[Rfam]
RNA sequence: GCUGAGCUGAGUUACUCCAGCUUGUGACCCAAGUGGGAGCAUUAAUGCUUGGACAUCAACAUUGAGGCUUGCUGGGUUGUGCUGUAUUUGCAAUAUGUUGGCCUGCCCACUCCAGUUGGGAGAGAGUCUGGGGACUUUAGUGAAGGCAUAGGUCUCUAGGCUCUUAGAGUGGAGGACACAGCGUGAGGCUGGUGUCACAGAGCAGCGACAACCUCCCACUCCCAUCAGUGGAGGGAUCACAGGCUGCUGUAUCCACAGUACUUAAUGGCCUGGUGAGUCUAGUAUGCUUGGACAUCACCAUUU
Numbered sequence: 001g002c003u004g005a006g007c008u009g010a011g012u013u014a015c016u017c018c019a020g021c022u023u024g025u026g027a028c029c030c031a032a033g034u035g036g037g038a039g040c041a042u043u044a045a046u047g048c049u050u051g052g053a054c055a056u057c058a059a060c061a062u063u064g065a066g067g068c069u070u071g072c073u074g075g076g077u078u079g080u081g082c083u084g085u086a087u088u089u090g091c092a093a094u095a096u097g098u099u100g101g102c103c104u105g106c107c108c109a110c111u112c113c114a115g116u117u118g119g120g121a122g123a124g125a126g127u128c129u130g131g132g133g134a135c136u137u138u139a140g141u142g143a144a145g146g147c148a149u150a151g152g153u154c155u156c157u158a159g160g161c162u163c164u165u166a167g168a169g170u171g172g173a174g175g176a177c178a179c180a181g182c183g184u185g186a187g188g189c190u191g192g193u194g195u196c197a198c199a200g201a202g203c204a205g206c207g208a209c210a211a212c213c214u215c216c217c218a219c220u221c222c223c224a225u226c227a228g229u230g231g232a233g234g235g236a237u238c239a240c241a242g243g244c245u246g247c248u249g250u251a252u253c254c255a256c257a258g259u260a261c262u263u264a265a266u267g268g269c270c271u272g273g274u275g276a277g278u279c280u281a282g283u284a285u286g287c288u289u290g291g292a293c294a295u296c297a298c299c300a301u302u303u
Base pairs, nucleotide, nucleotide: 001040002039003038004023005022006021007020008019009018011016028037029036030035044302045301046300047299049297051296052295056291057290058289060286061285063282065280066279067278069276070275071274072273073272074271075270076269077268078267079261080260081259082258083257084256085255089251090250093248099246100245101244102243103242104241105240107235108234110233111232112231113230114229115226117224118223119222120221121220122219124163125162126161127160128159129158130157131156132155133154134153135152136151137150140147141146164169171216172215173214174213175212182207183206184205189200190199191198
Shown here is a 303-nucleotide RNA from Phaseolus vulgaris, a member of the family "Plant signal recognition particle RNA". The literature on the family includes a 2001 paper in J Mol Biol by Batey et al., "Structural and energetic analysis of RNA recognition by a universally conserved protein from the signal recognition particle". The base pairs follow the family's consensus structure, which is taken from published work. Taxonomically the source falls in Phaseolus (Eukaryota, Spermatophyta, fabids, Phaseoleae).